[Rfam]
RNA sequence: ACACGUGCUCCGGGGUCGGUGCAAUUCCGAGCCGGCGGUGACAGUCCGCGACCCGGCCGCAGCCAGCGGCGGUUGACCUGGUGAAACUCCAGGACCGACGGUGAAAGUCCGGAUGGGAGGCAGCACGCGG
Numbered sequence: 001a002c003a004c005g006u007g008c009u010c011c012g013g014g015g016u017c018g019g020u021g022c023a024a025u026u027c028c029g030a031g032c033c034g035g036c037g038g039u040g041a042c043a044g045u046c047c048g049c050g051a052c053c054c055g056g057c058c059g060c061a062g063c064c065a066g067c068g069g070c071g072g073u074u075g076a077c078c079u080g081g082u083g084a085a086a087c088u089c090c091a092g093g094a095c096c097g098a099c100g101g102u103g104a105a106a107g108u109c110c111g112g113a114u115g116g117g118a119g120g121c122a123g124c125a126c127g128c129g130g
Base pairs, nucleotide, nucleotide: 004127005126006125007124008123009122010119017029018028019027031108032107033097034096035049036048037047038046044095045094053072054071077093078092079091080090081089099111100110101109
Overview
The family of this 130-nucleotide RNA sequence from Ornithinimicrobium tianjinense is "FMN riboswitch aptamer (RFN element)". Pairs were carried over by alignment from the consensus structure, which is taken from published work. Rfam links the family to the GO term FMN binding. It scores 92 bits against the family's covariance model. Rfam describes the family as follows. The RFN element is a highly conserved domain that is found frequently in the 5'-untranslated regions of prokaryotic mRNAs that encode for flavin mononucleotide (FMN) biosynthesis and transport proteins. This element is a metabolite-dependent riboswitch that directly binds FMN in the absence of proteins. In Bacillus subtilis, the riboswitch most likely controls gene expression by causing premature transcription termination within the 5' untranslated region of the ribDEAHT operon and precluding access to the ribosome-binding site of ypaA mRNA.The FMN riboswitch structure, reported in present an FMN-bound six-stem junction, adopts a butterfly-like scaffold, stapled together by opposingly directed but nearly identically folded peripheral domains.